Small nucleolar RNA SNORD11B: an 88-nucleotide sequence from Anguilla anguilla.
The match comes from Rfam's covariance-model search (68 bits).
The family's consensus secondary structure was predicted with WAR.
The organism belongs to Anguilla, within Eukaryota.
The family has 37 seed sequences and 733 matches in Rfam 15.1.
The family's RNA type in Rfam is C/D-box small nucleolar RNA.
On this family, see Yang et al., Nucleic Acids Res 2006: "snoSeeker: an advanced computational package for screening of guide and orphan snoRNA genes in the human genome".
RNA sequence: UGACAGUGGUGAUGAUGAUGACUAUACAGUCUCUUCCCUGAAAAAUAACCGUGUGGGUUUUUCAGUCACUACCUCAUCUGAACUGACA
Numbered sequence: 001u002g003a004c005a006g007u008g009g010u011g012a013u014g015a016u017g018a019u020g021a022c023u024a025u026a027c028a029g030u031c032u033c034u035u036c037c038c039u040g041a042a043a044a045a046u047a048a049c050c051g052u053g054u055g056g057g058u059u060u061u062u063c064a065g066u067c068a069c070u071a072c073c074u075c076a077u078c079u080g081a082a083c084u085g086a087c088a
Stems, first nucleotide, its partner, number of pairs: 002087001004085004